[Rfam]
RNA: Small nucleolar RNA Z199
RNA sequence: GGUUCAAGUGAUGAUGAAAAACUGCAACAAUAUGACAGGAGUUACACUCCCGUGAUUCGUGGUUUAAUGUCUGAUGAUU
Numbered sequence: 001g002g003u004u005c006a007a008g009u010g011a012u013g014a015u016g017a018a019a020a021a022c023u024g025c026a027a028c029a030a031u032a033u034g035a036c037a038g039g040a041g042u043u044a045c046a047c048u049c050c051c052g053u054g055a056u057u058c059g060u061g062g063u064u065u066a067a068u069g070u071c072u073g074a075u076g077a078u079u
Stems, first nucleotide, its partner, number of pairs: 001079002004077003038050004